Notes: The record is an 87-nucleotide sequence from Gossypium laxum, which matches "MIR7486 microRNA precursor family" in Rfam. The organism belongs to Gossypium, within Eukaryota. Gene Ontology terms of the family: RISC complex and miRNA-mediated post-transcriptional gene silencing.
[Rfam]
RNA sequence: CACGUCAGCGCGCCCUGCUGACGUGAAAGGAAAUCGCUUCCUUAGGGACGCAAUUUCCUUCCACAUCAGCAGGGUGCGCUGACAUGG
Numbered sequence: 001c002a003c004g005u006c007a008g009c010g011c012g013c014c015c016u017g018c019u020g021a022c023g024u025g026a027a028a029g030g031a032a033a034u035c036g037c038u039u040c041c042u043u044a045g046g047g048a049c050g051c052a053a054u055u056u057c058c059u060u061c062c063a064c065a066u067c068a069g070c071a072g073g074g075u076g077c078g079c080u081g082a083c084a085u086g087g
Stems, first nucleotide, its partner, number of pairs: 001086002004083018023064003027060008036051002040047002